[Rfam]
RNA sequence: CCUGCGACAGGACAGAAAGACCCCGUGGAGCUUUACUGCAGCUUGACAUUGGAUUUUGGUAUUGCAUGUACAGGAUAGGUGGGAGGCUGAGAAGCCAGGGCGCCAGUUUUGGCAGAGCCACCGUUGGGAUACCACCCUUGUGAUAUUGAAAUUCUAACACGAGCCUUUGAAUCAAGGUUAUGGACAGUGUCAGGUGGGCAGUUUGACUGGGGCGGUCGCCUCCCAAAGAGUAACGGAGGCGCCCAAAGGUUCCCUCAGCGCGGUUGGAAAUCGCGCGCACAGAGUGUAAAGGCAGAAGGGAGCUUGACAGCGAGACAUACAGGUCGAGCUGGGACGAAAGUCGGGCUUAGUGAUCCGGCGGCAUUCGCGUGGAAGAGCCGUCGCUCAACGGAUAAAAGCUACCCCGGGGAUAACAGGCUUAUCUCCCCCAAGAGUCCACAUCGACGGGGAGGUUUGGCACCUCGAUGUCGGCUCAUCGCAUCCUGGGGCUGUAGUAGGUCCCAAGGGUUGGGCUGUUCGCCCAUUAAAGCGGUACGUGAGCUGGGUUCAGAACGUCGUGAGACAGUUCGGUCCCUAUCCGUCGCAGGCGCA
Numbered sequence: 001c002c003u004g005c006g007a008c009a010g011g012a013c014a015g016a017a018a019g020a021c022c023c024c025g026u027g028g029a030g031c032u033u034u035a036c037u038g039c040a041g042c043u044u045g046a047c048a049u050u051g052g053a054u055u056u057u058g059g060u061a062u063u064g065c066a067u068g069u070a071c072a073g074g075a076u077a078g079g080u081g082g083g084a085g086g087c088u089g090a091g092a093a094g095c096c097a098g099g100g101c102g103c104c105a106g107u108u109u110u111g112g113c114a115g116a117g118c119c120a121c122c123g124u125u126g127g128g129a130u131a132c133c134a135c136c137c138u139u140g141u142g143a144u145a146u147u148g149a150a151a152u153u154c155u156a157a158c159a160c161g162a163g164c165c166u167u168u169g170a171a172u173c174a175a176g177g178u179u180a181u182g183g184a185c186a187g188u189g190u191c192a193g194g195u196g197g198g199c200a201g202u203u204u205g206a207c208u209g210g211g212g213c214g215g216u217c218g219c220c221u222c223c224c225a226a227a228g229a230g231u232a233a234c235g236g237a238g239g240c241g242c243c244c245a246a247a248g249g250u251u252c253c254c255u256c257a258g259c260g261c262g263g264u265u266g267g268a269a270a271u272c273g274c275g276c277g278c279a280c281a282g283a284g285u286g287u288a289a290a291g292g293c294a295g296a297a298g299g300g301a302g303c304u305u306g307a308c309a310g311c312g313a314g315a316c317a318u319a320c321a322g323g324u325c326g327a328g329c330u331g332g333g334a335c336g337a338a339a340g341u342c343g344g345g346c347u348u349a350g351u352g353a354u355c356c357g358g359c360g361g362c363a364u365u366c367g368c369g370u371g372g373a374a375g376a377g378c379c380g381u382c383g384c385u386c387a388a389c390g391g392a393u394a395a396a397a398g399c400u401a402c403c404c405c406g407g408g409g410a411u412a413a414c415a416g417g418c419u420u421a422u423c424u425c426c427c428c429c430a431a432g433a434g435u436c437c438a439c440a441u442c443g444a445c446g447g448g449g450a451g452g453u454u455u456g457g458c459a460c461c462u463c464g465a466u467g468u469c470g471g472c473u474c475a476u477c478g479c480a481u482c483c484u485g486g487g488g489c490u491g492u493a494g495u496a497g498g499u500c501c502c503a504a505g506g507g508u509u510g511g512g513c514u515g516u517u518c519g520c521c522c523a524u525u526a527a528a529g530c531g532g533u534a535c536g537u538g539a540g541c542u543g544g545g546u547u548c549a550g551a552a553c554g555u556c557g558u559g560a561g562a563c564a565g566u567u568c569g570g571u572c573c574c575u576a577u578c579c580g581u582c583g584c585a586g587g588c589g590c591a
Base pairs, nucleotide, nucleotide: 001587002586003585004584005583006582007581008580010579011578012577015573022408023407024406025405027404028403029400030399031398032397033396035202036201037200038199042194043193044192045191046190047189048188051154052153053152054151055150056149057148058147059146060145061144062143063142064141065140066139068137078136079135080134081133082132085119086118087117094113095112096111097110098109099108100107101106158182159181162179163178164177165176166175167174205217206216207215208214218240219239220238221237222236223235241389243345244344249303250302251301252300253299254298255283256282258276259275260274261273262272263271284293285292308331309330310329311328314325315324316323333342334341335340356383357382358381359380360379361378362377365376366375417458418457419456421455422452423451424450425449426448427447428446432442433441469544470542471541472540473539474536475533476532477531478530479529482507483506485502486501487500488499489498490497509523510522511521512520513519550568551567552566553565554563555562556561
A member of the RNA family "Bacterial large subunit ribosomal RNA" from Desulfoscipio gibsoniae, 591 nucleotides of a longer RNA. Pairs were carried over by alignment from the consensus structure, which is taken from published work. On this family, see Yusupov et al., Science 2001: "Crystal structure of the ribosome at 5.5 A resolution".